The record is a 140-nucleotide RNA from Enhydra lutris, which matches "Small nucleolar RNA SNORA1" in Rfam. NCBI's taxonomy places the organism under Eukaryota, Chordata, Gnathostomata, Sarcopterygii, Enhydra lutris. From the family's description: ACA1 is a member of the H/ACA class of snoRNA that guide the sites of modification of uridines to pseudouridines. By type it is an H/ACA-box small nucleolar RNA. Pairs were carried over by alignment from the consensus structure, which was predicted with PFOLD.
RNA sequence: AGCCUCAUUCCAGAUGGAAAUGGGCACUGUCGUUCAUGGUGUCCAGAACCUGACUGCGGCUACACCAAGACGGGGGAGAGCCAGAGCGCUUCCGUCCCAGCAAGUGUCUCGCAGGGUUGACCACAAGACCCCCAACAGUC
Numbered sequence: 001a002g003c004c005u006c007a008u009u010c011c012a013g014a015u016g017g018a019a020a021u022g023g024g025c026a027c028u029g030u031c032g033u034u035c036a037u038g039g040u041g042u043c044c045a046g047a048a049c050c051u052g053a054c055u056g057c058g059g060c061u062a063c064a065c066c067a068a069g070a071c072g073g074g075g076g077a078g079a080g081c082c083a084g085a086g087c088g089c090u091u092c093c094g095u096c097c098c099a100g101c102a103a104g105u106g107u108c109u110c111g112c113a114g115g116g117u118u119g120a121c122c123a124c125a126a127g128a129c130c131c132c133c134a135a136c137a138g139u140c
Stems, first nucleotide, its partner, number of pairs: 002060003006056002021045007072133005093119002096116003